[Rfam]
RNA sequence: CGAGCUGGCCGGGCAAUCGCUGUCGCCUUGUGCGAUGGAGGAAAGUCCGGGCUCCAUAGGGUGGAACGCCAGGUAACGCCUGGGGGGCGCGAGCCUACGGAAAGUGCAGCAGAGAGUAGACCGCCGAUGGCCUCCCUCGAUUUCGGUCCGGGGAAGCACAGGUAAGGGUGAAAGGGUGCGGUAAGAGCGCACCGCGCGACUGGUAACAGUUCGCGGCACGGUAAACCCCGUUCGGAGCAAGACCAAAUAGGCCCUCUAUAGGUGUGACCCGCACUGAGGGCGGGUAGGUCGCUUGAGGUGUCUGGUGACAGGCAUCCCAGAUGAAUGGUUGUCCUCGACAGAACCCGGCUUACAGGCCAGCUCACAUA
Numbered sequence: 001c002g003a004g005c006u007g008g009c010c011g012g013g014c015a016a017u018c019g020c021u022g023u024c025g026c027c028u029u030g031u032g033c034g035a036u037g038g039a040g041g042a043a044a045g046u047c048c049g050g051g052c053u054c055c056a057u058a059g060g061g062u063g064g065a066a067c068g069c070c071a072g073g074u075a076a077c078g079c080c081u082g083g084g085g086g087g088c089g090c091g092a093g094c095c096u097a098c099g100g101a102a103a104g105u106g107c108a109g110c111a112g113a114g115a116g117u118a119g120a121c122c123g124c125c126g127a128u129g130g131c132c133u134c135c136c137u138c139g140a141u142u143u144c145g146g147u148c149c150g151g152g153g154a155a156g157c158a159c160a161g162g163u164a165a166g167g168g169u170g171a172a173a174g175g176g177u178g179c180g181g182u183a184a185g186a187g188c189g190c191a192c193c194g195c196g197c198g199a200c201u202g203g204u205a206a207c208a209g210u211u212c213g214c215g216g217c218a219c220g221g222u223a224a225a226c227c228c229c230g231u232u233c234g235g236a237g238c239a240a241g242a243c244c245a246a247a248u249a250g251g252c253c254c255u256c257u258a259u260a261g262g263u264g265u266g267a268c269c270c271g272c273a274c275u276g277a278g279g280g281c282g283g284g285u286a287g288g289u290c291g292c293u294u295g296a297g298g299u300g301u302c303u304g305g306u307g308a309c310a311g312g313c314a315u316c317c318c319a320g321a322u323g324a325a326u327g328g329u330u331g332u333c334c335u336c337g338a339c340a341g342a343a344c345c346c347g348g349c350u351u352a353c354a355g356g357c358c359a360g361c362u363c364a365c366a367u368a
Base pairs, nucleotide, nucleotide: 002363003362004361005360006359007358008357009356010355011353012333013332014331015330016329017328018327020038021037022036023035024034025033026032043351044350045349047348048347049346050345051344052237053236054235055234059270060269061268062267064233065232066231067230068229069083070082071081072080073079084098085096086095087094088093099228100227104226105225106222107221121167122166123163124162125161128158129157175193176192177191178190179189180188194217195215196214197213198212199211200209201208202207241290242289243288244287251281252280253279254278255277256276261275262274263273264272265271297316298315299314300313301312302311303310304309